[Rfam]
RNA sequence: CAUCGCACUGCGGGAGAGUCCAUUCGCGAACAACGCGCAGGACACCGAAGGAGCAAGCCUCCCCGCCAAUCUCUCAGGUUCAGUACCGCACAGCGAAG
Numbered sequence: 001c002a003u004c005g006c007a008c009u010g011c012g013g014g015a016g017a018g019u020c021c022a023u024u025c026g027c028g029a030a031c032a033a034c035g036c037g038c039a040g041g042a043c044a045c046c047g048a049a050g051g052a053g054c055a056a057g058c059c060u061c062c063c064c065g066c067c068a069a070u071c072u073c074u075c076a077g078g079u080u081c082a083g084u085a086c087c088g089c090a091c092a093g094c095g096a097a098g
Stems, first nucleotide, its partner, number of pairs: 006093001009090005019042003044079003047075002051073003057066002